[Rfam]
RNA sequence: AAUAAUCGAAUGAAUUGAUCUCGUAUAAUGCCGGGGAUAUGGCCCGGAAGUUUCUACCCGGAUACCGUAAAUGUCCGGACUACGAGGGAAUACUGCUGAGGA
Numbered sequence: 001a002a003u004a005a006u007c008g009a010a011u012g013a014a015u016u017g018a019u020c021u022c023g024u025a026u027a028a029u030g031c032c033g034g035g036g037a038u039a040u041g042g043c044c045c046g047g048a049a050g051u052u053u054c055u056a057c058c059c060g061g062a063u064a065c066c067g068u069a070a071a072u073g074u075c076c077g078g079a080c081u082a083c084g085a086g087g088g089a090a091u092a093c094u095g096c097u098g099a100g101g102a
Base pairs, nucleotide, nucleotide: 019087020086021085022084023083024082025081029049031047032046033045034044035043058078059077060076061075062074063073064072
Shown here is a 102-nucleotide RNA sequence from Paenibacillus rhizosphaerae, a member of the family "Purine riboswitch aptamer". It scores 90 bits against the family's covariance model. Lineage of the source: Bacteria > Bacillati > Caryophanales > Paenibacillaceae > Paenibacillus. Gene Ontology term of the family: purine nucleobase biosynthetic process.